[Rfam]
Nucleotides: 087
Base pairs, nucleotide, nucleotide: 034067036065039062040061041058042057043056044055045054046053047052
Number, partner (000 for none) and nucleotide at each position: 001000u002000a003000a004000u005000u006000c007000u008000u009000u010000a011000g012000u013000a014000a015000u016000g017000a018000a019000a020000a021000c022000c023000c024000u025000g026000c027000c028000u029000c030000u031000u032000u033000u034067u035000c036065a037000u038000c039062c040061u041058u042057g043056c044055g045054g046053c047052u048000c049000c050000u051000g052047g053046g054045c055044c056043g057042c058041g059000c060000c061040a062039g063000u064000g065036u066000a067034a068000a069000a070000a071000a072000g073000a074000a075000a076000a077000u078000a079000c080000a081000a082000u083000g084000u085000u086000u087000u